A member of the RNA family "tRNA" from Schistosoma haematobium, 72 nucleotides long.
RNA sequence: GGCCUCAUGGUGUAGCGGUUAUCACUCUGGACUCUGAAUCCAGCGACCCGAGUUCGAGUCUCGGCGAGGCCU
Numbered sequence: 001g002g003c004c005u006c007a008u009g010g011u012g013u014a015g016c017g018g019u020u021a022u023c024a025c026u027c028u029g030g031a032c033u034c035u036g037a038a039u040c041c042a043g044c045g046a047c048c049c050g051a052g053u054u055c056g057a058g059u060c061u062c063g064g065c066g067a068g069g070c071c072u
Stems, first nucleotide, its partner, number of pairs: 001071006010025003027043005048064005

The family's consensus secondary structure is taken from published work. The source organism's lineage runs through Eukaryota, Bilateria, Spiralia, Strigeidida and Schistosoma.